[Rfam]
RNA sequence: UUAUAAAACGUUUUAGCUAAUGAACUGUUUUAUCCCUCUCAGUCAAAGAACAAUCUGUUCUAAGUUAGAAAAGGAUAAAAUAGUUGAAUAGCUAAACGUCUUAUAAC
Numbered sequence: 001u002u003a004u005a006a007a008a009c010g011u012u013u014u015a016g017c018u019a020a021u022g023a024a025c026u027g028u029u030u031u032a033u034c035c036c037u038c039u040c041a042g043u044c045a046a047a048g049a050a051c052a053a054u055c056u057g058u059u060c061u062a063a064g065u066u067a068g069a070a071a072a073g074g075a076u077a078a079a080a081u082a083g084u085u086g087a088a089u090a091g092c093u094a095a096a097c098g099u100c101u102u103a104u105a106a107c
Stems, first nucleotide, its partner, number of pairs: 001106006012096008021087001023085006029069004034064001049059004